[Rfam]
The family of this 56-nucleotide RNA from Equus caballus is "mir-124 microRNA precursor family". Rfam's curators put it in the seed alignment. A reference for the family is Lim et al. (2003), "The microRNAs of Caenorhabditis elegans", Genes Dev. The base pairs follow the family's consensus structure, which was predicted with PFOLD.

RNA sequence: GUGUUCACAGCGGACCUUGAUUUAAUGUCAUACAAUUAAGGCACGCGGUGAAUGCC
Numbered sequence: 001g002u003g004u005u006c007a008c009a010g011c012g013g014a015c016c017u018u019g020a021u022u023u024a025a026u027g028u029c030a031u032a033c034a035a036u037u038a039a040g041g042c043a044c045g046c047g048g049u050g051a052a053u054g055c056c
Stems, first nucleotide, its partner, number of pairs: 001055008010046003015041008